[Rfam]
RNA: U7 small nuclear RNA
Organism: Pipistrellus kuhlii
RNA sequence: AAGUGCUUACAGAUUUUUGUGAAUUUGUCCAGCGGGUCUUCCAGCUUGCACCGGAAGCCACCCCC
Numbered sequence: 001a002a003g004u005g006c007u008u009a010c011a012g013a014u015u016u017u018u019g020u021g022a023a024u025u026u027g028u029c030c031a032g033c034g035g036g037u038c039u040u041c042c043a044g045c046u047u048g049c050a051c052c053g054g055a056a057g058c059c060a061c062c063c064c065c
Stems, first nucleotide, its partner, number of pairs: 035062003038057005044051001